[Rfam]
RNA sequence: GCAGCGCUGGGGGUCCGCGCUCGGCGAGGAUCGCAAC
Numbered sequence: 001g002c003a004g005c006g007c008u009g010g011g012g013g014u015c016c017g018c019g020c021u022c023g024g025c026g027a028g029g030a031u032c033g034c035a036a037c
Base pairs, nucleotide, nucleotide: 005026006025007024008023009022010021011020013018
Shown here is a 37-nucleotide RNA sequence from Lentzea tibetensis, a member of the family "CRISPR RNA direct repeat element". Its family is annotated with defense response in the Gene Ontology.